A member of the RNA family "BsrC" from Paraliobacillus quinghaiensis, 87 nucleotides long.
Pairs were carried over by alignment from the consensus structure, which was predicted with CMfinder.
From the family's description: The 301 nucleotide sequence from Kouji Nakamura has been trimmed to a highly conserved ~85 nucleotide long core to form this family.
Taxonomically the source falls in Paraliobacillus (Bacteria, Bacillati, Caryophanales, Bacillaceae).
Rfam classes the family as a small RNA.
RNA sequence: UUUAACCUAAACGAUGUAAGCCCUACCUCUCCUACAUCCUUACGACUCCAAAGUCGAUCCAGUGUGAAUAAGUCUUGCUAAUUGUAU
Numbered sequence: 001u002u003u004a005a006c007c008u009a010a011a012c013g014a015u016g017u018a019a020g021c022c023c024u025a026c027c028u029c030u031c032c033u034a035c036a037u038c039c040u041u042a043c044g045a046c047u048c049c050a051a052a053g054u055c056g057a058u059c060c061a062g063u064g065u066g067a068a069u070a071a072g073u074c075u076u077g078c079u080a081a082u083u084g085u086a087u
Base pairs, nucleotide, nucleotide: 035066036065039062040061043056044055045054046053047052